About this RNA: The record is an 89-nucleotide sequence from Candidatus Enterococcus dunnyi, which matches "RNA anti-toxin A" in Rfam. Its family is annotated with negative regulation of translation and mRNA binding in the Gene Ontology. NCBI's taxonomy places the organism under Bacteria, Bacillota, Bacilli, Lactobacillales, Enterococcus.

[Rfam]
RNA sequence: UAAUAAAACCCGCAAAGAGGAUAUGCGCUAACAUAUCCUCUUCGACAGAGCCGUUUAAGACGGUAACUAGUUUAUUUUAAGAGUAACUA
Numbered sequence: 001u002a003a004u005a006a007a008a009c010c011c012g013c014a015a016a017g018a019g020g021a022u023a024u025g026c027g028c029u030a031a032c033a034u035a036u037c038c039u040c041u042u043c044g045a046c047a048g049a050g051c052c053g054u055u056u057a058a059g060a061c062g063g064u065a066a067c068u069a070g071u072u073u074a075u076u077u078u079a080a081g082a083g084u085a086a087c088u089a
Stems, first nucleotide, its partner, number of pairs: 022035004050064006